Notes: Shown here is a 103-nucleotide RNA from Garciella nitratireducens, a member of the family "Purine riboswitch aptamer". The match comes from Rfam's covariance-model search (71 bits). The base pairs follow the family's consensus structure, which is taken from published work.

RNA sequence: AAAAGAAAAUAAAGAUUUUCUCAUAUAAUAGCAGAAAUAGGGUCUGGAAGUUUCUACUUAGACUAUCAUAAAUAGUCUAACUAUGAGCAACAAUAUUUUGGAC
Numbered sequence: 001a002a003a004a005g006a007a008a009a010u011a012a013a014g015a016u017u018u019u020c021u022c023a024u025a026u027a028a029u030a031g032c033a034g035a036a037a038u039a040g041g042g043u044c045u046g047g048a049a050g051u052u053u054c055u056a057c058u059u060a061g062a063c064u065a066u067c068a069u070a071a072a073u074a075g076u077c078u079a080a081c082u083a084u085g086a087g088c089a090a091c092a093a094u095a096u097u098u099u100g101g102a103c
Stems, first nucleotide, its partner, number of pairs: 018089001020087006029049001032046004059079007